This 100-nucleotide RNA from Saccharibacillus sacchari belongs to the Rfam family "Purine riboswitch aptamer".
[Rfam]
RNA sequence: CACCGCGAAAAAUUGCAUACGCGUAUAACUCCGUAGAUAAGGUACGGGGGGCUCUACCGGAAACCGUAAAGUUCCGAUUACAAACAAAUGCAUGCCUGGC
Numbered sequence: 001c002a003c004c005g006c007g008a009a010a011a012a013u014u015g016c017a018u019a020c021g022c023g024u025a026u027a028a029c030u031c032c033g034u035a036g037a038u039a040a041g042g043u044a045c046g047g048g049g050g051g052c053u054c055u056a057c058c059g060g061a062a063a064c065c066g067u068a069a070a071g072u073u074c075c076g077a078u079u080a081c082a083a084a085c086a087a088a089u090g091c092a093u094g095c096c097u098g099g100c
Base pairs, nucleotide, nucleotide: 018086023081024080025079029049030048031047032046033045034044035043058076059075060074061073062072
Dot-bracket structure: .................(....(((...(((((((.......)))))))........(((((.........)))))..)))....)..............

Gene Ontology term of the family: purine nucleobase biosynthetic process.